The record is a 151-nucleotide sequence from Chelonobacter oris, which matches "FMN riboswitch aptamer (RFN element)" in Rfam. A search with the family's covariance model found it, with a score of 108 bits.
RNA sequence: GGCAAUUCUCAGGGCGGGGCGAAAUUCCCCACCGGUGGUAAGGGUGCAAAGCGCACUUAAGCCCACGAGCGCCCGCAUUUAUGUGCGGGGUCUAGCAGAUUCGGUGUAAAUCCGAAGCCGACAGUGAUAGUCUGGAUGGUAGAGAAUGAGG
Numbered sequence: 001g002g003c004a005a006u007u008c009u010c011a012g013g014g015c016g017g018g019g020c021g022a023a024a025u026u027c028c029c030c031a032c033c034g035g036u037g038g039u040a041a042g043g044g045u046g047c048a049a050a051g052c053g054c055a056c057u058u059a060a061g062c063c064c065a066c067g068a069g070c071g072c073c074c075g076c077a078u079u080u081a082u083g084u085g086c087g088g089g090g091u092c093u094a095g096c097a098g099a100u101u102c103g104g105u106g107u108a109a110a111u112c113c114g115a116a117g118c119c120g121a122c123a124g125u126g127a128u129a130g131u132c133u134g135g136a137u138g139g140u141a142g143a144g145a146a147u148g149a150g151g
Stems, first nucleotide, its partner, number of pairs: 005147006017029003031131002033120002035066004061118002069096002100116005122134003